[Rfam]
L31-Actinobacteria ribosomal protein leader: a 46-nucleotide RNA sequence from Rhodococcus (subgen. Prescottella) equi.
By type it is a cis-regulatory leader.

RNA sequence: CCGGUUCCGGUUCACGGCCUCGAACGGCGAGGACGACCCGGCGGCC
Number, nucleotide and partner (000 for none) at each position: 001c000002c000003g046004g045005u044006u000007c041008c040009g039010g038011u000012u000013c000014a000015c035016g034017g000018c032019c031020u030021c029022g028023a000024a000025c000026g000027g000028c022029g021030a020031g019032g018033a000034c016035g015036a000037c000038c010039c009040g008041g007042c000043g000044g005045c004046c003
The literature on the family includes a 2020 paper in BMC Microbiol by Eckert and Weinberg, "Discovery of 20 novel ribosomal leader candidates in bacteria and archaea". The family's consensus secondary structure is taken from published work.